[Rfam]
Rfam assigns this 64-nucleotide RNA to the family "Pistol ribozyme". Its family is annotated with catalytic activity in the Gene Ontology.

RNA sequence: ACUCGUCUGAGCGAGUAUAAACCACUUUAGGCUCAGAGCGUCCCCACUUCGGUGGGGGGUAGCA
Dot-bracket structure: [[[[.((((((.]]]]........[[....[)))))).].(((((((....)))))))..]]..
Numbered sequence: 001a002c003u004c005g006u007c008u009g010a011g012c013g014a015g016u017a018u019a020a021a022c023c024a025c026u027u028u029a030g031g032c033u034c035a036g037a038g039c040g041u042c043c044c045c046a047c048u049u050c051g052g053u054g055g056g057g058g059g060u061a062g063c064a
Stems, first nucleotide, its partner, number of pairs: 001016004006037006025062002031039001041058007